[Rfam]
Rfam assigns this 88-nucleotide sequence from Homo sapiens to the family "mir-4536 microRNA precursor family".
NCBI's taxonomy places the organism under Eukaryota, Craniata, Eutheria, Homininae, Homo.
The sequence is in the family's curated seed alignment.
The family's consensus secondary structure was predicted with RNAalifold.
Gene Ontology terms of the family: miRNA-mediated post-transcriptional gene silencing and RISC complex.
RNA sequence: AUGUGGUAGAUAUAUGCACGAUAUAUAUACUGCCCUGCUUUUAUACAUACAUACAUACAUACCUAUAUCGUGCAUAUAUCUACCACAU
Numbered sequence: 001a002u003g004u005g006g007u008a009g010a011u012a013u014a015u016g017c018a019c020g021a022u023a024u025a026u027a028u029a030c031u032g033c034c035c036u037g038c039u040u041u042u043a044u045a046c047a048u049a050c051a052u053a054c055a056u057a058c059a060u061a062c063c064u065a066u067a068u069c070g071u072g073c074a075u076a077u078a079u080c081u082a083c084c085a086c087a088u
Stems, first nucleotide, its partner, number of pairs: 001088025028061002039057001042053003